[Rfam]
RNA sequence: GCCCAAAGUCGCACGAGCCUGUGGGCGUCCCCCGAUCCUCAUAUGCGAGGCCAUCGGGACGGUCCUGGAGUAGUACCCUCCAGUCGUCUUCGCGCCAAGCGAAGUCGAGGACGCCUUAAAGCAACGACGGUGCGGGCUUUU
Numbered sequence: 001g002c003c004c005a006a007a008g009u010c011g012c013a014c015g016a017g018c019c020u021g022u023g024g025g026c027g028u029c030c031c032c033c034g035a036u037c038c039u040c041a042u043a044u045g046c047g048a049g050g051c052c053a054u055c056g057g058g059a060c061g062g063u064c065c066u067g068g069a070g071u072a073g074u075a076c077c078c079u080c081c082a083g084u085c086g087u088c089u090u091c092g093c094g095c096c097a098a099g100c101g102a103a104g105u106c107g108a109g110g111a112c113g114c115c116u117u118a119a120a121g122c123a124a125c126g127a128c129g130g131u132g133c134g135g136g137c138u139u140u141u
Stems, first nucleotide, its partner, number of pairs: 001137004008128004017122002023116008031058005037050004065083005084108003088104006

Alphaproteobacterial sRNA ar45: a 141-nucleotide sequence from Aureimonas glaciei. By type it is a small RNA. A search with the family's covariance model found it, with a score of 115 bits. On this family, see del Val et al., RNA Biol 2012: "A survey of sRNA families in alpha-proteobacteria".